The family of this 111-nucleotide sequence from Canis lupus is "mir-8799 microRNA precursor family". The family's consensus secondary structure was predicted with RNAalifold.
RNA sequence: GGGGGGAGGCCUGAUCCUGGCCUGUGUCCCAGGCGCUCUGUGCUCCCGGGCUGUGUCCCAGGCGCUCUGUGCUCCCGCUGUGGAUUCAAGCUCCCGGCUGGGCAGCCCCCU
Numbered sequence: 001g002g003g004g005g006g007a008g009g010c011c012u013g014a015u016c017c018u019g020g021c022c023u024g025u026g027u028c029c030c031a032g033g034c035g036c037u038c039u040g041u042g043c044u045c046c047c048g049g050g051c052u053g054u055g056u057c058c059c060a061g062g063c064g065c066u067c068u069g070u071g072c073u074c075c076c077g078c079u080g081u082g083g084a085u086u087c088a089a090g091c092u093c094c095c096g097g098c099u100g101g102g103c104a105g106c107c108c109c110c111u
Stems, first nucleotide, its partner, number of pairs: 001111006009103002011100001013098001016097002019094002023090001025088002027084003030080001032079004040073001042072002
The match comes from Rfam's covariance-model search (46 bits). NCBI's taxonomy places the organism under Eukaryota, Euteleostomi, Mammalia, Carnivora, Canis lupus.